A member of the RNA family "L31-Actinobacteria ribosomal protein leader" from Amycolatopsis antarctica, 43 nucleotides long. For this family Rfam cites "Discovery of 20 novel ribosomal leader candidates in bacteria and archaea" (Eckert and Weinberg, BMC Microbiol, 2020). It is annotated as a cis-regulatory leader. The match comes from Rfam's covariance-model search (47 bits). The base pairs follow the family's consensus structure, which is taken from published work.
RNA sequence: CCGGCACCGGUUCACCCCACGUUCCACCGGGGACCCGGCGGCC
Numbered sequence: 001c002c003g004g005c006a007c008c009g010g011u012u013c014a015c016c017c018c019a020c021g022u023u024c025c026a027c028c029g030g031g032g033a034c035c036c037g038g039c040g041g042c043c
Stems, first nucleotide, its partner, number of pairs: 003043003007038004015032004021027002
Dot-bracket structure: ..(((.((((....((((..((...)).))))..))))..)))